Shown here is a 124-nucleotide RNA sequence from Achromobacter piechaudii, a member of the family "Betaproteobacteria-1 RNA".
The source organism's lineage runs through Bacteria, Pseudomonadota, Betaproteobacteria, Alcaligenaceae and Achromobacter piechaudii.
The sequence is in the family's curated seed alignment.

RNA sequence: ACCCGCGCUGGUCGGACAUAGCUUAACGACAGCGGCGCGGGGAAGAGGCUCCUACUGUGGGAUAGAUCUGAGACAGGGGCGAGGGCGGCGAAGUUAGCACCCUUGAUCGAGAAGGCUGACGGGU
Numbered sequence: 001a002c003c004c005g006c007g008c009u010g011g012u013c014g015g016a017c018a019u020a021g022c023u024u025a026a027c028g029a030c031a032g033c034g035g036c037g038c039g040g041g042g043a044a045g046a047g048g049c050u051c052c053u054a055c056u057g058u059g060g061g062a063u064a065g066a067u068c069u070g071a072g073a074c075a076g077g078g079g080c081g082a083g084g085g086c087g088g089c090g091a092a093g094u095u096a097g098c099a100c101c102c103u104u105g106a107u108c109g110a111g112a113a114g115g116c117u118g119a120c121g122g123g124u
Stems, first nucleotide, its partner, number of pairs: 002041009029058004048080006065108004081104005093120006